[Rfam]
RNA sequence: GCGGUCGUGGCGGAAUUGGUAGACGCACCAGCUUGAGGGGCUGGCGCCCGCAAGGGCGUGGAAGUUCGAGUCUUCUCGACCGCA
Numbered sequence: 001g002c003g004g005u006c007g008u009g010g011c012g013g014a015a016u017u018g019g020u021a022g023a024c025g026c027a028c029c030a031g032c033u034u035g036a037g038g039g040g041c042u043g044g045c046g047c048c049c050g051c052a053a054g055g056g057c058g059u060g061g062a063a064g065u066u067c068g069a070g071u072c073u074u075c076u077c078g079a080c081c082g083c084a
Base pairs, nucleotide, nucleotide: 001083002082003081004080005079006078007077010026011025012024028044029043030042031041032040060076061075062074063073064072
The record is an 84-nucleotide RNA from Arboricoccus pini, which matches "tRNA" in Rfam. It scores 52 bits against the family's covariance model. Pairs were carried over by alignment from the consensus structure, which is taken from published work.